[Rfam]
RNA sequence: CCCACGGCUCUUAUCAGAGCCACCACAUUUUCCAAAAAGAGAUAGAU
Numbered sequence: 001c002c003c004a005c006g007g008c009u010c011u012u013a014u015c016a017g018a019g020c021c022a023c024c025a026c027a028u029u030u031u032c033c034a035a036a037a038a039g040a041g042a043u044a045g046a047u
Stems, first nucleotide, its partner, number of pairs: 006021006
Rfam assigns this 47-nucleotide RNA sequence from Acanthaster planci to the family "Histone 3' UTR stem-loop".
Rfam classes the family as a cis-regulatory element.
Rfam's curators write: The mRNAs of metazoan histone genes lack a poly-A tail. 3' end processing occurs at a site between a highly conserved stem-loop (modelled by this family) and a purine rich region around 20 nts downstream (the histone downstream element, or HDE).